[Rfam]
RNA sequence: ACAUUAGCCACUACAAUACAGCCUGCUAAGUGUUCCAGCACUUAACCAGGUUACAUUGUAAUUAUUUGUAUA
Number, nucleotide and partner (000 for none) at each position: 001a000002c000003a000004u000005u000006a000007g000008c000009c000010a000011c000012u000013a059014c058015a057016a056017u055018a000019c000020a052021g051022c000023c049024u048025g047026c000027u044028a043029a042030g041031u040032g039033u038034u000035c000036c000037a000038g033039c032040a031041c030042u029043u028044a027045a000046c000047c025048a024049g023050g000051u021052u020053a000054c000055a017056u016057u015058g014059u013060a000061a000062u000063u000064a000065u000066u000067u000068g000069u000070a000071u000072a000

Shown here is a 72-nucleotide RNA from Erinaceus europaeus, a member of the family "mir-374 microRNA precursor family".
Rfam 15.1 lists 440 matches to the family in 122 species.
The source organism's lineage runs through Eukaryota, Teleostomi, Eutheria, Erinaceinae and Erinaceus.
Its family is annotated with RISC complex and miRNA-mediated post-transcriptional gene silencing in the Gene Ontology.
Pairs were carried over by alignment from the consensus structure, which was predicted with PFOLD.